The record is a 120-nucleotide RNA from Atopobium minutum, which matches "DUF3800-I RNA" in Rfam.
[Rfam]
RNA sequence: UUUAGUUACAGGCUUAAUAAGUGCUGUAUACCUAGGCCACUGAACUAAACGUUUAAGCGGCGUUUCCCGUCGCCAGUCCUAGGCGAAAGGCCACCGAGAGGUGGCUUUUUUCGUUUUUAU
Numbered sequence: 001u002u003u004a005g006u007u008a009c010a011g012g013c014u015u016a017a018u019a020a021g022u023g024c025u026g027u028a029u030a031c032c033u034a035g036g037c038c039a040c041u042g043a044a045c046u047a048a049a050c051g052u053u054u055a056a057g058c059g060g061c062g063u064u065u066c067c068c069g070u071c072g073c074c075a076g077u078c079c080u081a082g083g084c085g086a087a088a089g090g091c092c093a094c095c096g097a098g099a100g101g102u103g104g105c106u107u108u109u110u111u112c113g114u115u116u117u118u119a120u
Stems, first nucleotide, its partner, number of pairs: 007028005012022003031083006039077004043053003057073006085110010

It is annotated as a small RNA.
Rfam's curators put it in the seed alignment.
Actinobacteria, Firmicutes, Fusobacteria, Proteobacteria (1 example), Tenericutes (2 examples).